[Rfam]
RNA sequence: CGGCUGUAGCUAUAGUAGAGAAGUUAACUGGCCGGUUAUCGUGCUUGAUUUGAAAAUUUCAAGCUUCCGUCGGUAAAUCUGCUUACCGAACUUCGUACAUUU
Numbered sequence: 001c002g003g004c005u006g007u008a009g010c011u012a013u014a015g016u017a018g019a020g021a022a023g024u025u026a027a028c029u030g031g032c033c034g035g036u037u038a039u040c041g042u043g044c045u046u047g048a049u050u051u052g053a054a055a056a057u058u059u060c061a062a063g064c065u066u067c068c069g070u071c072g073g074u075a076a077a078u079c080u081g082c083u084u085a086c087c088g089a090a091c092u093u094c095g096u097a098c099a100u101u102u
Base pairs, nucleotide, nucleotide: 018096020094021093022092023091024090025089030083031082032081034079035078036077037076038074039073040072041071
A member of the RNA family "Small nucleolar RNA snoR109" from Gossypium arboreum, 102 nucleotides long. Lineage of the source: Eukaryota > eudicotyledons > Malvaceae > Malvoideae > Gossypium. The match comes from Rfam's covariance-model search (73 bits). The base pairs follow the family's consensus structure, which was predicted with WAR.